Notes
Rfam assigns this 71-nucleotide RNA from Crocodylus porosus to the family "Mammalian CPEB3 ribozyme".

RNA sequence: CAAGUUCAAUGCCACAGCAGAAGCACUCACAGCAUAGCCUGUCAGAUUCCAAUGAAUCUGCAAAUUCUGCU
Number, nucleotide and partner (000 for none) at each position: 001c000002a000003a000004g000005u000006u000007c000008a000009a000010u000011g038012c037013c000014a000015c000016a071017g070018c069019a068020g067021a066022a065023g035024c000025a000026c000027u000028c000029a000030c000031a000032g000033c000034a000035u023036a000037g012038c011039c000040u000041g000042u000043c060044a059045g058046a057047u056048u055049c054050c000051a000052a000053u000054g049055a048056a047057u046058c045059u044060g043061c000062a000063a000064a000065u022066u021067c020068u019069g018070c017071u016